[Rfam]
RNA: Bacterial RNase P class A
RNA sequence: UGAGUCGGUCAGACGGCCGCGUCGGUGCCCCUCGGGGCGCCGCCGAGGAACGUCCGGGCUCCACAGGGCAAGGUGGUGGCUAACGGCCACCCGGGGCGACCCGCGGGACAGUGCCACAGAGAGCAGACCGCCUCGGCGAACCACCCGGCUCCGGCCGGGCAGGCGCCGCGGUAAGGGUGAAACGGUGGUGUAAGAGACCACCAGCACGCCAGGUGACUGGCGUGGCUAGGUAAACCCCACCUGGAGCAAGGUCAGACAGGAAGCGUUCGAGGGCGGCCCGCCCGAGCUUCCGGGUAGACCGCUGGAGGUGUCCGGCAACGGGCACCCGAGAUGGAUGGCCGUCGCCCGCAGUGCCGGUAACGGCCGCGGUGCACAGAACCCGGCGUACCGACCGACUCAUCCA
Numbered sequence: 001u002g003a004g005u006c007g008g009u010c011a012g013a014c015g016g017c018c019g020c021g022u023c024g025g026u027g028c029c030c031c032u033c034g035g036g037g038c039g040c041c042g043c044c045g046a047g048g049a050a051c052g053u054c055c056g057g058g059c060u061c062c063a064c065a066g067g068g069c070a071a072g073g074u075g076g077u078g079g080c081u082a083a084c085g086g087c088c089a090c091c092c093g094g095g096g097c098g099a100c101c102c103g104c105g106g107g108a109c110a111g112u113g114c115c116a117c118a119g120a121g122a123g124c125a126g127a128c129c130g131c132c133u134c135g136g137c138g139a140a141c142c143a144c145c146c147g148g149c150u151c152c153g154g155c156c157g158g159g160c161a162g163g164c165g166c167c168g169c170g171g172u173a174a175g176g177g178u179g180a181a182a183c184g185g186u187g188g189u190g191u192a193a194g195a196g197a198c199c200a201c202c203a204g205c206a207c208g209c210c211a212g213g214u215g216a217c218u219g220g221c222g223u224g225g226c227u228a229g230g231u232a233a234a235c236c237c238c239a240c241c242u243g244g245a246g247c248a249a250g251g252u253c254a255g256a257c258a259g260g261a262a263g264c265g266u267u268c269g270a271g272g273g274c275g276g277c278c279c280g281c282c283c284g285a286g287c288u289u290c291c292g293g294g295u296a297g298a299c300c301g302c303u304g305g306a307g308g309u310g311u312c313c314g315g316c317a318a319c320g321g322g323c324a325c326c327c328g329a330g331a332u333g334g335a336u337g338g339c340c341g342u343c344g345c346c347c348g349c350a351g352u353g354c355c356g357g358u359a360a361c362g363g364c365c366g367c368g369g370u371g372c373a374c375a376g377a378a379c380c381c382g383g384c385g386u387a388c389c390g391a392c393c394g395a396c397u398c399a400u401c402c403a
Stems, first nucleotide, its partner, number of pairs: 001399010012343007020045002023042006050386003054383005059246004066279004071242005076090005091105001092103004106237002111235002113231003128176002130172003134168005184202006204226001205224008250300004259291006271283004307326008